Annotation
A member of the RNA family "L2-Alphaproteobacteria ribosomal protein leader" from Aliishimia ponticola, 70 nucleotides long. Pairs were carried over by alignment from the consensus structure, which is taken from published work. A reference for the family is Eckert and Weinberg (2020), "Discovery of 20 novel ribosomal leader candidates in bacteria and archaea", BMC Microbiol.
[Rfam]
RNA sequence: UGGCACCUACGGGGGCCUAAAACCAUAGGGCGGGGCGUGCCUCGCUCGUUUAGCAAACGGAAGACAGUAA
Numbered sequence: 001u002g003g004c005a006c007c008u009a010c011g012g013g014g015g016c017c018u019a020a021a022a023c024c025a026u027a028g029g030g031c032g033g034g035g036c037g038u039g040c041c042u043c044g045c046u047c048g049u050u051u052a053g054c055a056a057a058c059g060g061a062a063g064a065c066a067g068u069a070a
Stems, first nucleotide, its partner, number of pairs: 002017003006014003028047007